This 77-nucleotide sequence from Cavia porcellus belongs to the Rfam family "Small nucleolar RNA SNORD53/SNORD92".
The source organism's lineage runs through Eukaryota, Bilateria, Craniata, Dipnotetrapodomorpha and Cavia.
A reference for the family is Kiss-Laszlo et al. (1996), "Site-specific ribose methylation of preribosomal RNA: a novel function for small nucleolar RNAs", Cell.
Its family is annotated with nucleolus and RNA processing in the Gene Ontology.
The family is grouped with related families in Rfam's "SNORD52 clan".
Rfam classes the family as a C/D-box small nucleolar RNA.
Rfam's curators put it in the seed alignment.
RNA sequence: UUGCUGUGAUGACUUUCAUUGUGUUUCGCAUGUUUCUGAGUUCCAGUGAUACCUCUUUCUCUUGGCUGUCUGAGCAA
Numbered sequence: 001u002u003g004c005u006g007u008g009a010u011g012a013c014u015u016u017c018a019u020u021g022u023g024u025u026u027c028g029c030a031u032g033u034u035u036c037u038g039a040g041u042u043c044c045a046g047u048g049a050u051a052c053c054u055c056u057u058u059c060u061c062u063u064g065g066c067u068g069u070c071u072g073a074g075c076a077a
Stems, first nucleotide, its partner, number of pairs: 001077004
Dot-bracket structure: ((((.....................................................................))))